[Rfam]
The record is a 139-nucleotide sequence from Pleuronectes platessa, which matches "Small nucleolar RNA SNORA15" in Rfam. Its family is annotated with nucleolus and RNA processing in the Gene Ontology. The match comes from Rfam's covariance-model search (55 bits). About the family: ACA15 is a member of the H/ACA class of snoRNA that guide the sites of modification of uridines to pseudouridines.
RNA sequence: GCAUGGAAGAAUUCUGUUUUACUCUUGAAAUAGUAAAUGCAGUCAGACACUAUGCAAAAUUAUUGUUUUCACACACUGACUCAAUAACAGAAGAGUGCUUGUUCUGUGCCUCUUUUUUUAUCUCAGAGUGAAUACAGCA
Numbered sequence: 001g002c003a004u005g006g007a008a009g010a011a012u013u014c015u016g017u018u019u020u021a022c023u024c025u026u027g028a029a030a031u032a033g034u035a036a037a038u039g040c041a042g043u044c045a046g047a048c049a050c051u052a053u054g055c056a057a058a059a060u061u062a063u064u065g066u067u068u069u070c071a072c073a074c075a076c077u078g079a080c081u082c083a084a085u086a087a088c089a090g091a092a093g094a095g096u097g098c099u100u101g102u103u104c105u106g107u108g109c110c111u112c113u114u115u116u117u118u119u120a121u122c123u124c125a126g127a128g129u130g131a132a133u134a135c136a137g138c139a
Stems, first nucleotide, its partner, number of pairs: 001055006014042004019037001068132003074128001076126004084121004089116007